Rfam assigns this 46-nucleotide sequence from Gordonia bronchialis to the family "L31-Actinobacteria ribosomal protein leader". Lineage of the source: Bacteria > Bacillati > Actinomycetota > Mycobacteriales > Gordonia bronchialis.
RNA sequence: CCGGUUCCGGUUCACACCGUCGAGACACGACGGUGACCCGGCGACC
Numbered sequence: 001c002c003g004g005u006u007c008c009g010g011u012u013c014a015c016a017c018c019g020u021c022g023a024g025a026c027a028c029g030a031c032g033g034u035g036a037c038c039c040g041g042c043g044a045c046c
Stems, first nucleotide, its partner, number of pairs: 003046003007041004015035008
Dot-bracket structure: ..(((.((((....((((((((.....))))))))..))))..)))